[Rfam]
RNA: Iron response element I
RNA sequence: CUGCUUCUUGAUUCAACCGUGUUUGAAUAGAACAG
Numbered sequence: 001c002u003g004c005u006u007c008u009u010g011a012u013u014c015a016a017c018c019g020u021g022u023u024u025g026a027a028u029a030g031a032a033c034a035g
Stems, first nucleotide, its partner, number of pairs: 001035003005032004010028001012027005017021001